Shown here is a 76-nucleotide sequence from Myotis brandtii, a member of the family "mir-9229 microRNA precursor family". NCBI's taxonomy places the organism under Eukaryota, Gnathostomata, Sarcopterygii, Boreoeutheria, Myotis. The family has 7 seed sequences and 27,225 matches in Rfam 15.1.
RNA sequence: GAGACACCCUUAUGGAGCAAGACUUGCUUCGGUGGGGCUUUGGUGUUCACUGAGUCUGCUUCUUGAGUGUGUUGCU
Numbered sequence: 001g002a003g004a005c006a007c008c009c010u011u012a013u014g015g016a017g018c019a020a021g022a023c024u025u026g027c028u029u030c031g032g033u034g035g036g037g038c039u040u041u042g043g044u045g046u047u048c049a050c051u052g053a054g055u056c057u058g059c060u061u062c063u064u065g066a067g068u069g070u071g072u073u074g075c076u
Base pairs, nucleotide, nucleotide: 001075003073004072005071006070007069009067010066011065012064014062015061016060017059018058019057021056022055023054029053030052031051032050033049034048035047036046037044038043